[Rfam]
Nucleotides: 116
Stems, first nucleotide, its partner, number of pairs: 002053002005050001019048004025042003060103002070092006
Number, partner (000 for none) and nucleotide at each position: 001000u002053u003052g004000g005050a006000g007000g008000u009000a010000a011000u012000u013000a014000u015000g016000c017000u018000g019048a020047c021046c022045a023000u024000c025042u026041u027040c028000c029000u030000u031000u032000u033000c034000u035000c036000a037000g038000g039000a040027g041026g042025g043000c044000c045022u046021g047020g048019u049000g050005u051000g052003c053002a054000a055000u056000g057000g058000a059000g060103g061102u062000a063000g064000u065000a066000u067000a068000u069000g070092u071091a072090a073089c074088c075087u076000u077000u078000u079000g080000c081000u082000u083000g084000u085000a086000u087075g088074g089073g090072u091071u092070g093000c094000u095000c096000u097000a098000a099000g100000g101000g102061a103060c104000a105000u106000u107000a108000c109000u110000u111000u112000c113000u114000g115000a116000u
Record summary: Small nucleolar RNA SNORA70: a 116-nucleotide RNA from Otolemur garnettii. The family's RNA type in Rfam is H/ACA-box small nucleolar RNA. Rfam links the family to the GO terms nucleolus and RNA processing. The family's consensus secondary structure was predicted with PFOLD. From the family's description: snoRNA U70 seems to be exclusive to mammals and is a member of the H/ACA class of snoRNA which contain H (ANANNA) and ACA box motifs. NCBI's taxonomy places the organism under Eukaryota, Opisthokonta, Sarcopterygii, Theria, Otolemur.